[Rfam]
RNA sequence: GGCCAGGGAUGAUGAAGUUUAGGCUUGUUUCUCAUAACAUUCGCAGUGGCCGACCAAGAGCUCUCGCCUUUGCGAGGCUUGAGAGCUAAUGCUGUUAAAUUCUUCCUUGGAUGUCUGAGGCC
Numbered sequence: 001g002g003c004c005a006g007g008g009a010u011g012a013u014g015a016a017g018u019u020u021a022g023g024c025u026u027g028u029u030u031c032u033c034a035u036a037a038c039a040u041u042c043g044c045a046g047u048g049g050c051c052g053a054c055c056a057a058g059a060g061c062u063c064u065c066g067c068c069u070u071u072g073c074g075a076g077g078c079u080u081g082a083g084a085g086c087u088a089a090u091g092c093u094g095u096u097a098a099a100u101u102c103u104u105c106c107u108u109g110g111a112u113g114u115c116u117g118a119g120g121c122c
Stems, first nucleotide, its partner, number of pairs: 001122004060086006
The family of this 122-nucleotide RNA from Taxus chinensis is "Small nucleolar RNA SNORD14". NCBI's taxonomy places the organism under Eukaryota, Streptophyta, Pinopsida, Conifers II, Taxus. Rfam 15.1 lists 4,559 matches to the family in 936 species. Its family is annotated with nucleolus and RNA processing in the Gene Ontology. A reference for the family is Samarsky et al. (1996), "An essential domain in Saccharomyces cerevisiae U14 snoRNA is absent in vertebrates, but conserved in other yeasts", Nucleic Acids Res. U14 small nucleolar RNA (U14 snoRNA) is required for early cleavages of eukaryotic precursor rRNAs. In yeasts, this molecule possess a stem-loop region (known as the Y-domain) which is essential for function. A similar structure, but with a different consensus sequence, is found in plants, but is absent in vertebrates. The match comes from Rfam's covariance-model search (82 bits).